[Rfam]
RNA: c-di-AMP riboswitch aptamer (ydaO/yuaA leader)
Organism: Desulfitobacterium metallireducens
RNA sequence: AUAAAGCCAGCGCUGAAUUCUAUGGAAGCGGGGGAACCAAGUCUGGGCUAUCAAUUAGCCAAAUGGGGUGAAUCACUGAAUGUGACGGGUUAUUCCUUUCAAUCCGAAUCCGACAGCUAACCUCGUAAGCGUUGAAAGGGGGUUAA
Numbered sequence: 001a002u003a004a005a006g007c008c009a010g011c012g013c014u015g016a017a018u019u020c021u022a023u024g025g026a027a028g029c030g031g032g033g034g035a036a037c038c039a040a041g042u043c044u045g046g047g048c049u050a051u052c053a054a055u056u057a058g059c060c061a062a063a064u065g066g067g068g069u070g071a072a073u074c075a076c077u078g079a080a081u082g083u084g085a086c087g088g089g090u091u092a093u094u095c096c097u098u099u100c101a102a103u104c105c106g107a108a109u110c111c112g113a114c115a116g117c118u119a120a121c122c123u124c125g126u127a128a129g130c131g132u133u134g135a136a137a138g139g140g141g142g143u144u145a146a
Stems, first nucleotide, its partner, number of pairs: 011131004018027003028126006038065002066111003074084003087105004